Shown here is a 72-nucleotide RNA from Lactococcus termiticola, a member of the family "tRNA". The base pairs follow the family's consensus structure, which is taken from published work. Rfam classes the family as a transfer RNA. The match comes from Rfam's covariance-model search (53 bits).
[Rfam]
Nucleotides: 072
Base pairs, nucleotide, nucleotide: 001071002070003069004068005067006066007065010025011024012023013022027043028042029041030040031039048064049063050062051061052060
Number, partner (000 for none) and nucleotide at each position: 001071c002070g003069c004068c005067c006066c007065a008000u009000c010025u011024u012023c013022u014000a015000a016000c017000g018000g019000u020000u021000a022013g023012g024011a025010a026000u027043c028042c029041g030040g031039a032000u033000u034000c035000u036000c037000a038000u039031u040030c041029c042028g043027g044000c045000a046000a047000u048064c049063g050062g051061g052060g053000u054000u055000c056000g057000a058000u059000u060052c061051c062050c063049c064048g065007u066006g067005g068004g069003g070002u071001g072000a